A member of the RNA family "Xanthine riboswitch aptamer (NMT1 RNA)", 58 nucleotides long. A reference for the family is Yu and Breaker (2020), "A bacterial riboswitch class senses xanthine and uric acid to regulate genes associated with purine oxidation", RNA. The sequence is in the family's curated seed alignment.

RNA sequence: UCGCCGAGUAGAAGCGUUCAGCCCGCGCAGCGCGCGGCGCCCGGAAAUUGCUCAUGUC
Numbered sequence: 001u002c003g004c005c006g007a008g009u010a011g012a013a014g015c016g017u018u019c020a021g022c023c024c025g026c027g028c029a030g031c032g033c034g035c036g037g038c039g040c041c042c043g044g045a046a047a048u049u050g051c052u053c054a055u056g057u058c
Base pairs, nucleotide, nucleotide: 006053007052008051009050010049015043018045019044021040022039023037024036025035026034027033028032